[Rfam]
RNA sequence: UUCUUAUCCAGAGAGGUGGAGGGAUUUGGCCCUUUGAUACCUCGGCAGCGGACUCUUUAAGAGCACUGUGCCAAUUCCAACAAGCGUUAUGCUUGGCAGAUAAGAC
Numbered sequence: 001u002u003c004u005u006a007u008c009c010a011g012a013g014a015g016g017u018g019g020a021g022g023g024a025u026u027u028g029g030c031c032c033u034u035u036g037a038u039a040c041c042u043c044g045g046c047a048g049c050g051g052a053c054u055c056u057u058u059a060a061g062a063g064c065a066c067u068g069u070g071c072c073a074a075u076u077c078c079a080a081c082a083a084g085c086g087u088u089a090u091g092c093u094u095g096g097c098a099g100a101u102a103a104g105a106c
Base pairs, nucleotide, nucleotide: 002105003104004103005102006101007100008099013043014042015041016040017039021032022031023030026080027079028078029077044072045071046070047069049068050067051064054062076098081095082094083093084092085091086090